A member of the RNA family "BsrC" from Paenibacillus albilobatus, 88 nucleotides long.
RNA sequence: CCUUUCCAAAACAACAAAAGCCCUACCUCUCUUUUGUCCUUGCGGCUCCGAUGACCGCGCCAGCGUGAAUCAGAAUGCGUCUUGUCUU
Numbered sequence: 001c002c003u004u005u006c007c008a009a010a011a012c013a014a015c016a017a018a019a020g021c022c023c024u025a026c027c028u029c030u031c032u033u034u035u036g037u038c039c040u041u042g043c044g045g046c047u048c049c050g051a052u053g054a055c056c057g058c059g060c061c062a063g064c065g066u067g068a069a070u071c072a073g074a075a076u077g078c079g080u081c082u083u084g085u086c087u088u
Stems, first nucleotide, its partner, number of pairs: 034068003039063002041059005047053001

Background
Pairs were carried over by alignment from the consensus structure, which was predicted with CMfinder. It scores 61 bits against the family's covariance model. On this family, see Saito et al., Gene 2008: "Novel small RNA-encoding genes in the intergenic regions of Bacillus subtilis". From the family's description: The 301 nucleotide sequence from Kouji Nakamura has been trimmed to a highly conserved ~85 nucleotide long core to form this family.